RNA sequence: CCCGUUGUCAUUGGGGAGUAGCCAUCCUCACCCCUGAGGGCCUUCACGGCCUUCGUACCCAGAGGAAUCCGCGUCAACAGACUUGAAGCUUCGGCUUCAUGGCGCGGAUGGCGCCGCGAACCGAUAUCGUCGGCUUCGCGCCCGCCCGGCGAGACCUUUGGCCACGACGUGCUC
Numbered sequence: 001c002c003c004g005u006u007g008u009c010a011u012u013g014g015g016g017a018g019u020a021g022c023c024a025u026c027c028u029c030a031c032c033c034c035u036g037a038g039g040g041c042c043u044u045c046a047c048g049g050c051c052u053u054c055g056u057a058c059c060c061a062g063a064g065g066a067a068u069c070c071g072c073g074u075c076a077a078c079a080g081a082c083u084u085g086a087a088g089c090u091u092c093g094g095c096u097u098c099a100u101g102g103c104g105c106g107g108a109u110g111g112c113g114c115c116g117c118g119a120a121c122c123g124a125u126a127u128c129g130u131c132g133g134c135u136u137c138g139c140g141c142c143c144g145c146c147c148g149g150c151g152a153g154a155c156c157u158u159u160g161g162c163c164a165c166g167a168c169g170u171g172c173u174c
Stems, first nucleotide, its partner, number of pairs: 026065003067109010084099005

A member of the RNA family "Manganese Mn2+ riboswitch aptamer (yybP-ykoY)" from Dyella sp. OK004, 174 nucleotides long. On this family, see Price et al., Mol Cell 2015: "Mn(2+)-sensing mechanisms of yybP-ykoY orphan riboswitches". Rfam describes the family as follows. This RNA was originally discovered in E. coli during a large scale screen and was named SraF. The family was later found to exist upstream of related families of protein genes in many bacteria, including the the yybP and ykoK genes in B. subtilis. The specific functions of these proteins are unknown, but this structured RNA element may be involved in their genetic regulation as a riboswitch.